[Rfam]
RNA sequence: AUUGGUCUUGUGCGGGACAUAGUUGAUGAAGGCGAAGCCGCGCAUCUGGUCGAUGAUGUGGAACAGCGGGUUCCACUCGAAAUAGGGCAGCAUGAAGUUGGGCAGGGUAUUGGCGACGAACAUCUUGCCCGAGGCGAUCAUGUUCAGCCGCG
Numbered sequence: 001a002u003u004g005g006u007c008u009u010g011u012g013c014g015g016g017a018c019a020u021a022g023u024u025g026a027u028g029a030a031g032g033c034g035a036a037g038c039c040g041c042g043c044a045u046c047u048g049g050u051c052g053a054u055g056a057u058g059u060g061g062a063a064c065a066g067c068g069g070g071u072u073c074c075a076c077u078c079g080a081a082a083u084a085g086g087g088c089a090g091c092a093u094g095a096a097g098u099u100g101g102g103c104a105g106g107g108u109a110u111u112g113g114c115g116a117c118g119a120a121c122a123u124c125u126u127g128c129c130c131g132a133g134g135c136g137a138u139c140a141u142g143u144u145c146a147g148c149c150g151c152g
Base pairs, nucleotide, nucleotide: 002035003034004033006032007031008030009029013025014024015023037057039055040054041052042051067152068151071081072080073079086149087148088147089144090143091142092141093140094139098134099133101130102129103127104126105125106124107123108122110119111118112117

This 152-nucleotide RNA from Paracoccus zhejiangensis belongs to the Rfam family "Ruegeria cis2 sRNA". Rfam links the family to the GO term regulation of gene expression. A reference for the family is Rivers et al. (2016), "Experimental Identification of Small Non-Coding RNAs in the Model Marine Bacterium Ruegeria pomeroyi DSS-3", Front Microbiol. The family's consensus secondary structure was predicted with RNAfold. Rfam classes the family as a small RNA.